[Rfam]
RNA: Plastid-rps18 3UTR RNA
RNA sequence: UGCAAGUAUUUUACGAUUAAGAAGCAAUUGCUUCUUAUAUAGAUUGUGUAUUAAUCG
Numbered sequence: 001u002g003c004a005a006g007u008a009u010u011u012u013a014c015g016a017u018u019a020a021g022a023a024g025c026a027a028u029u030g031c032u033u034c035u036u037a038u039a040u041a042g043a044u045u046g047u048g049u050a051u052u053a054a055u056c057g
Base pairs, nucleotide, nucleotide: 018037019036020035021034022033023032024031025030